RNA: Clostridiales-1 RNA
Organism: Oribacterium sp. C9
RNA sequence: AGAUAGUGUUGCGCUGCGACCGUCGAAUUGCAAGCUCGCUUGCAUAUUCGAUCGGGCAUAGCGCAACCUGAUGUAUAUGAGGAUAAAAGCUAUGCGAAUGAAAUGAGCAGAGCGAUUUCCGAAUAUACAUCAGGAUUGUGGGAGUGCGAAGCACGAAGCAAUCCGGACUAUCA
Dot-bracket structure: .((((((((((...((.(.(((((((((.(((((....)))))..))))))).)).).))...))))...((((((((..(((.....(((.(((...........))).)))....)))..))))))))..(((((((....((((...))))...)))))))..)))))).